[Rfam]
RNA sequence: GAUACCCGUAGAUCACCGCCGGAUCGAGGGUCGGCUCUGUAACCAAGCGCACGGUUUGGGUCGCUGUGUCGUACAAACCGCCAAAGUACAUCGCUUUCGCUACGAGCAAGAAAGCACCCAGUCCCAGCAACAGUAAGUGAUGGCCCAAAAUUAAACCCAAUUGCUUCGGGUCUUCCCA
Numbered sequence: 001g002a003u004a005c006c007c008g009u010a011g012a013u014c015a016c017c018g019c020c021g022g023a024u025c026g027a028g029g030g031u032c033g034g035c036u037c038u039g040u041a042a043c044c045a046a047g048c049g050c051a052c053g054g055u056u057u058g059g060g061u062c063g064c065u066g067u068g069u070c071g072u073a074c075a076a077a078c079c080g081c082c083a084a085a086g087u088a089c090a091u092c093g094c095u096u097u098c099g100c101u102a103c104g105a106g107c108a109a110g111a112a113a114g115c116a117c118c119c120a121g122u123c124c125c126a127g128c129a130a131c132a133g134u135a136a137g138u139g140a141u142g143g144c145c146c147a148a149a150a151u152u153a154a155a156c157c158c159a160a161u162u163g164c165u166u167c168g169g170g171u172c173u174u175c176c177c178a
Stems, first nucleotide, its partner, number of pairs: 137174001139172003144169002147166002

Antisense RNA which regulates isiA expression: a 178-nucleotide RNA sequence from Synechococcus sp.
The source organism's lineage runs through Bacteria, Bacillati, Cyanophyceae, Synechococcales and Synechococcus.
The literature on the family includes a 2006 paper in Proc Natl Acad Sci U S A by Duhring et al., "An internal antisense RNA regulates expression of the photosynthesis gene isiA".